[Rfam]
Nucleotides: 046
Base pairs, nucleotide, nucleotide: 006040007039009037010036011035012034013033014032015031016030
Number, partner (000 for none) and nucleotide at each position: 001000a002000g003000a004000g005000c006040u007039u008000c009037g010036a011035g012034c013033c014032a015031a016030u017000a018000a019000a020000g021000a022000c023000u024000a025000a026000g027000a028000a029000g030016g031015u032014u033013g034012g035011u036010u037009c038000a039007a040006g041000a042000a043000a044000a045000a046000a